About this RNA
The family of this 115-nucleotide sequence from Moritella dasanensis is "RT-12 RNA". Rfam's curators put it in the seed alignment. Taxonomically the source falls in Moritella dasanensis (Bacteria, Pseudomonadati, Pseudomonadota, Moritellaceae).

[Rfam]
RNA sequence: UAAUAUAUGCGACGCGUACCUUGAAAAAGGUCAGAUGAUUGGUUAGGCCAGUUAGUUGAAGCCGGGGAGAAUAAUGCAGAAAGGUCGCUUUUCUAUUUAUCCUCGGUUUUGCUAG
Numbered sequence: 001u002a003a004u005a006u007a008u009g010c011g012a013c014g015c016g017u018a019c020c021u022u023g024a025a026a027a028a029g030g031u032c033a034g035a036u037g038a039u040u041g042g043u044u045a046g047g048c049c050a051g052u053u054a055g056u057u058g059a060a061g062c063c064g065g066g067g068a069g070a071a072u073a074a075u076g077c078a079g080a081a082a083g084g085u086c087g088c089u090u091u092u093c094u095a096u097u098u099a100u101c102c103u104c105g106g107u108u109u110u111g112c113u114a115g
Stems, first nucleotide, its partner, number of pairs: 009088005018031005039051004052115005058109001062106007070098002078094005